[Rfam]
RNA sequence: GCAAUGGGCGGCUAGGGUUCCGGUCCGCGCGUCGCCGCGGGCGACUGGUCCGAGAGCCGCCAUCCCGGCCGCGCACAGGCCGGGACACACGGCGGGCCAAAAUCCCGGGAGGU
Numbered sequence: 001g002c003a004a005u006g007g008g009c010g011g012c013u014a015g016g017g018u019u020c021c022g023g024u025c026c027g028c029g030c031g032u033c034g035c036c037g038c039g040g041g042c043g044a045c046u047g048g049u050c051c052g053a054g055a056g057c058c059g060c061c062a063u064c065c066c067g068g069c070c071g072c073g074c075a076c077a078g079g080c081c082g083g084g085a086c087a088c089a090c091g092g093c094g095g096g097c098c099a100a101a102a103u104c105c106c107g108g109g110a111g112g113u
Stems, first nucleotide, its partner, number of pairs: 007061006015051002020048002022045001023042006063085007088108001090111001094106003
The record is a 113-nucleotide sequence from Minwuia thermotolerans, which matches "Guanidine-I riboswitch aptamer" in Rfam. Rfam's curators write: This family represents a conserved RNA structure found upstream of the ykkC and yxkD genes in Bacillus subtilis and related genes in other bacteria. The function of this family is unclear although it has been suggested that it may function to switch on efflux pumps and detoxification systems in response to harmful environmental molecules. The match comes from Rfam's covariance-model search (83 bits). The organism belongs to Minwuia, within Bacteria.